[Rfam]
RNA sequence: CGGUGAGGUAGAGGUCGCAGCUUUUAUGAGUAAGUUGGGUGAGACACGGGUAAAGUUAAGGACCCCGAUUGAAAGGAAAAGCUGCCGAAAUGUGGCGGAGGAUCCCGGACCGCCAUGUUGGGGCUGUUUCCGAACAGGAACAGAACUGUCACAUAUGCGCUAAUCCUCUCGCAUAUGUGUUGAGCUAUCUACGGA
Numbered sequence: 001c002g003g004u005g006a007g008g009u010a011g012a013g014g015u016c017g018c019a020g021c022u023u024u025u026a027u028g029a030g031u032a033a034g035u036u037g038g039g040u041g042a043g044a045c046a047c048g049g050g051u052a053a054a055g056u057u058a059a060g061g062a063c064c065c066c067g068a069u070u071g072a073a074a075g076g077a078a079a080a081g082c083u084g085c086c087g088a089a090a091u092g093u094g095g096c097g098g099a100g101g102a103u104c105c106c107g108g109a110c111c112g113c114c115a116u117g118u119u120g121g122g123g124c125u126g127u128u129u130c131c132g133a134a135c136a137g138g139a140a141c142a143g144a145a146c147u148g149u150c151a152c153a154u155a156u157g158c159g160c161u162a163a164u165c166c167u168c169u170c171g172c173a174u175a176u177g178u179g180u181u182g183a184g185c186u187a188u189c190u191a192c193g194g195a
Stems, first nucleotide, its partner, number of pairs: 006190006017085009033070007089119010120147002124143007150179010
The family of this 195-nucleotide RNA sequence from Weizmannia acidilactici is "Lysine riboswitch aptamer". About the family: Riboswitches are metabolite binding domains within certain messenger RNAs that serve as precision sensors for their corresponding targets. Allosteric rearrangement of mRNA structure is mediated by ligand binding, and this results in modulation of gene expression. This family includes riboswitches that sense lysine in a number of genes involved in lysine metabolism, including lysC. A reference for the family is Grundy et al. (2003), "The L box regulon: Lysine sensing by leader RNAs of bacterial lysine biosynthesis genes", Proc Natl Acad Sci U S A.